The record is a 157-nucleotide RNA from Erysipelothrix sp. HDW6B, which matches "M-box riboswitch aptamer (ykoK leader)" in Rfam. Its family is annotated with response to magnesium ion and regulation of gene expression in the Gene Ontology. NCBI's taxonomy places the organism under Bacteria, Bacillota, Erysipelotrichia, Erysipelotrichales, Erysipelothrix.
RNA sequence: UAAAAACUACGGUAGGUGAGGCUACUUUAGGGAUACGGAUUACUACCGCAAAAUAGUGGAGACACUAUGCGCUGGUCAACAGUAUACGUCACGAAGGCGUAAACUAGUGUAAUAACAUUGCCCUAUUGAGUUAAAGCUUGAACGAUUUAUGUGAUUU
Numbered sequence: 001u002a003a004a005a006a007c008u009a010c011g012g013u014a015g016g017u018g019a020g021g022c023u024a025c026u027u028u029a030g031g032g033a034u035a036c037g038g039a040u041u042a043c044u045a046c047c048g049c050a051a052a053a054u055a056g057u058g059g060a061g062a063c064a065c066u067a068u069g070c071g072c073u074g075g076u077c078a079a080c081a082g083u084a085u086a087c088g089u090c091a092c093g094a095a096g097g098c099g100u101a102a103a104c105u106a107g108u109g110u111a112a113u114a115a116c117a118u119u120g121c122c123c124u125a126u127u128g129a130g131u132u133a134a135a136g137c138u139u140g141a142a143c144g145a146u147u148u149a150u151g152u153g154a155u156u157u
Stems, first nucleotide, its partner, number of pairs: 006152002011143001013095001015138003020132003025128001028125005039113005046074001048072002055066004082104002085101001088098003
Record summary
The match comes from Rfam's covariance-model search (87 bits). Rfam's curators write: M-box riboswitch, also know as ykoK leader is described as a metaloregulatory RNA that sense divalent metals and function as a genetic control element of genes related to divalent metal transport in bacteria. The base pairs follow the family's consensus structure.